Shown here is a 64-nucleotide RNA from Myotis brandtii, a member of the family "mir-9242 microRNA precursor family".
Pairs were carried over by alignment from the consensus structure, which was predicted with RNAalifold.
It scores 66 bits against the family's covariance model.
NCBI's taxonomy places the organism under Eukaryota, Metazoa, Euteleostomi, Eutheria, Myotis.

RNA sequence: GGCCUCCCUCUGUGGGGCGAUCGAUCGCAGAGCCCCCCCAUCAAUUGCCCCACAGAGGGGGGCC
Numbered sequence: 001g002g003c004c005u006c007c008c009u010c011u012g013u014g015g016g017g018c019g020a021u022c023g024a025u026c027g028c029a030g031a032g033c034c035c036c037c038c039c040a041u042c043a044a045u046u047g048c049c050c051c052a053c054a055g056a057g058g059g060g061g062g063c064c
Stems, first nucleotide, its partner, number of pairs: 001064021023042003027038001